Rfam assigns this 78-nucleotide sequence from Chryseobacterium sp. Leaf394 to the family "Flavo-1 RNA". The base pairs follow the family's consensus structure, which is taken from published work. The match comes from Rfam's covariance-model search (58 bits). The organism belongs to Chryseobacterium, within Bacteria. The family's RNA type in Rfam is small RNA.
RNA sequence: CCUUAGCCCGGAUAGGAACGGCAUCCUUUUGUGAUGAGGAACGAAGAGCAAAAGAUACAGUGGAUAGCCGGAUUAAGC
Numbered sequence: 001c002c003u004u005a006g007c008c009c010g011g012a013u014a015g016g017a018a019c020g021g022c023a024u025c026c027u028u029u030u031g032u033g034a035u036g037a038g039g040a041a042c043g044a045a046g047a048g049c050a051a052a053a054g055a056u057a058c059a060g061u062g063g064a065u066a067g068c069c070g071g072a073u074u075a076a077g078c
Stems, first nucleotide, its partner, number of pairs: 009070003013066002018061002023056003029051004